Overview: A member of the RNA family "Small nucleolar RNA SNORA15" from Collichthys lucidus, 136 nucleotides long. Taxonomically the source falls in Collichthys (Eukaryota, Eumetazoa, Actinopterygii, Actinopteri). The family has 22 seed sequences and 974 matches in Rfam 15.1. From the family's description: ACA15 is a member of the H/ACA class of snoRNA that guide the sites of modification of uridines to pseudouridines.
[Rfam]
RNA sequence: GCAUGGCCGAAUUCUGUUCCAGCUGAUCUGUGGUGGAUACAGUCAGACACCAUGCAAAAGCAUUGUCUCAUUGCUGCCUAUUGACUGGAUGAGUGCGUCCCUCAGCCUCAUUCAACUGUACAGGAAUGAGAAACAU
Numbered sequence: 001g002c003a004u005g006g007c008c009g010a011a012u013u014c015u016g017u018u019c020c021a022g023c024u025g026a027u028c029u030g031u032g033g034u035g036g037a038u039a040c041a042g043u044c045a046g047a048c049a050c051c052a053u054g055c056a057a058a059a060g061c062a063u064u065g066u067c068u069c070a071u072u073g074c075u076g077c078c079u080a081u082u083g084a085c086u087g088g089a090u091g092a093g094u095g096c097g098u099c100c101c102u103c104a105g106c107c108u109c110a111u112u113c114a115a116c117u118g119u120a121c122a123g124g125a126a127u128g129a130g131a132a133a134c135a136u
Stems, first nucleotide, its partner, number of pairs: 001055006014042004068129003071125002074123003082118002086114008094105001